[Rfam]
RNA sequence: CAGUGUUACAUCUCUUUUAGAAUUUGUCUAGCAGGUUUUCUGAUCUUUACCAGAAAACUCCC
Numbered sequence: 001c002a003g004u005g006u007u008a009c010a011u012c013u014c015u016u017u018u019a020g021a022a023u024u025u026g027u028c029u030a031g032c033a034g035g036u037u038u039u040c041u042g043a044u045c046u047u048u049a050c051c052a053g054a055a056a057a058c059u060c061c062c
Stems, first nucleotide, its partner, number of pairs: 034059009044049001
The family of this 62-nucleotide RNA sequence from Aotus nancymaae is "U7 small nuclear RNA". A search with the family's covariance model found it, with a score of 67 bits. The family's consensus secondary structure was predicted with PFOLD. A reference for the family is Marz et al. (2007), "U7 snRNAs: a computational survey", Genomics Proteomics Bioinformatics.